RNA sequence: AGCGGCCGGCAGGGCCGAGGCAGUCGAUCAUCGUAUGCUGCCCGCGCCUUUCCCCGGCUGCA
Number, nucleotide and partner (000 for none) at each position: 001a000002g061003c060004g059005g058006c057007c000008g000009g000010c000011a000012g000013g048014g047015c046016c000017g000018a000019g042020g041021c040022a039023g038024u037025c033026g032027a000028u000029c000030a000031u000032c026033g025034u000035a000036u000037g024038c023039u022040g021041c020042c019043c000044g000045c000046g015047c014048c013049u000050u000051u000052c000053c000054c000055c000056g000057g006058c005059u004060g003061c002062a000
RNA: gabT RNA
Organism: Pseudomonas taeanensis